[Rfam]
RNA sequence: CCUUCCGAGGAGCGUUGCGACGGGUUUUGCCCGCCAGGCUCGGAAAACGGGGUUUCCGGCCCGGCGGCACUCUACAUGGUGCUGCCUAUACCGCCCGGGUCAACGGCCAGGAAAUGGCCGCAACGGCGCUCACGUCUU
Number, nucleotide and partner (000 for none) at each position: 001c000002c000003u045004u044005c043006c042007g041008a040009g000010g000011a000012g000013c000014g000015u000016u000017g000018c000019g000020a000021c033022g032023g031024g030025u029026u000027u000028u000029g025030c024031c023032c022033g021034c000035c000036a000037g000038g000039c000040u008041c007042g006043g005044a004045a003046a000047a000048c000049g000050g000051g000052g000053u000054u000055u000056c000057c000058g000059g000060c000061c000062c000063g000064g000065c000066g000067g000068c000069a000070c000071u000072c000073u000074a000075c000076a000077u000078g000079g000080u000081g000082c000083u000084g000085c000086c000087u000088a000089u000090a000091c000092c000093g000094c000095c000096c000097g000098g000099g000100u000101c000102a000103a000104c000105g000106g000107c000108c000109a000110g000111g000112a000113a000114a000115u000116g000117g000118c000119c000120g000121c000122a000123a000124c000125g000126g000127c000128g000129c000130u000131c000132a000133c000134g000135u000136c000137u000138u000
SAH (S-adenosyl-L-homocysteine) riboswitch aptamer: a 138-nucleotide RNA sequence from Robbsia andropogonis. The family's consensus secondary structure is taken from published work. The match comes from Rfam's covariance-model search (56 bits). For this family Rfam cites "Riboswitches that sense S-adenosylhomocysteine and activate genes involved in coenzyme recycling" (Wang et al., Mol Cell, 2008).